[Rfam]
Description: A member of the RNA family "U8 small nucleolar RNA" from Moschus moschiferus, 134 nucleotides long. Rfam 15.1 lists 1,597 matches to the family in 457 species. Taxonomically the source falls in Moschus (Eukaryota, Eumetazoa, Eutheria, Ruminantia). Pairs were carried over by alignment from the consensus structure, which is taken from published work.

Nucleotides: 134
Base pairs, nucleotide, nucleotide: 024046025045026044028043029042031040033038075093076092078090081086098122099121100120101119102118103117104116
Number, partner (000 for none) and nucleotide at each position: 001000u002000c003000a004000u005000c006000a007000g008000g009000a010000a011000g012000c013000g014000u015000a016000a017000g018000u019000c020000u021000u022000a023000c024046c025045u026044g027000u028043u029042c030000g031040u032000c033038c034000c035000u036000u037000u038033g039000a040031a041000g042029g043028g044026c045025a046024g047000a048000a049000u050000a051000g052000a053000a054000c055000a056000u057000g058000a059000u060000g061000a062000c063000u064000u065000g066000a067000g068000u069000u070000c071000c072000c073000a074000u075093g076092a077000c078090u079000c080000a081086u082000g083000a084000u085000u086081a087000g088000g089000a090078g091000c092076u093075c094000u095000g096000c097000a098122u099121a100120a101119u102118c103117a104116g105000g106000a107000c108000u109000u110000g111000c112000a113000a114000c115000a116104u117103u118102g119101a120100u121099u122098g123000c124000u125000c126000c127000u128000g129000u130000u131000u132000g133000c134000u